[Rfam]
RNA sequence: GCCUCCCUUCUCUAAUCCUUGCUAUCUGGGUGCUAGUGCUGUCUCUAUGCAAUGCACCUGGGCAAGGAUUGAGAGGGGGUAGGC
Numbered sequence: 001g002c003c004u005c006c007c008u009u010c011u012c013u014a015a016u017c018c019u020u021g022c023u024a025u026c027u028g029g030g031u032g033c034u035a036g037u038g039c040u041g042u043c044u045c046u047a048u049g050c051a052a053u054g055c056a057c058c059u060g061g062g063c064a065a066g067g068a069u070u071g072a073g074a075g076g077g078g079g080u081a082g083g084c
Base pairs, nucleotide, nucleotide: 014070015069016068017067018066019065020064025062026061027060028059029058030057031056032055037051038050039049
A member of the RNA family "mir-500 microRNA precursor family" from Phyllostomus discolor, 84 nucleotides long. Gene Ontology terms of the family: miRNA-mediated post-transcriptional gene silencing and RISC complex. The source organism's lineage runs through Eukaryota, Vertebrata, Teleostomi, Theria and Phyllostomus. For this family Rfam cites "Small RNA expression and strain specificity in the rat" (Linsen et al., BMC Genomics, 2010).